Vault RNA: a 99-nucleotide sequence from Diceros bicornis. It scores 78 bits against the family's covariance model. Lineage of the source: Eukaryota > Opisthokonta > Dipnotetrapodomorpha > Rhinocerotidae > Diceros bicornis. It is annotated as a non-coding RNA gene.
RNA sequence: GGGUCAGGUUUAGCUCAAGCGGUUACUUCGCAACUCUUCAAUUGUUCUGAACUAGUCCCAUCUGGGGUUCGAGACCCGCGGGUGCUUUCUGACCCUUUU
Numbered sequence: 001g002g003g004u005c006a007g008g009u010u011u012a013g014c015u016c017a018a019g020c021g022g023u024u025a026c027u028u029c030g031c032a033a034c035u036c037u038u039c040a041a042u043u044g045u046u047c048u049g050a051a052c053u054a055g056u057c058c059c060a061u062c063u064g065g066g067g068u069u070c071g072a073g074a075c076c077c078g079c080g081g082g083u084g085c086u087u088u089c090u091g092a093c094c095c096u097u098u099u
Stems, first nucleotide, its partner, number of pairs: 002094006013083004019079004027073004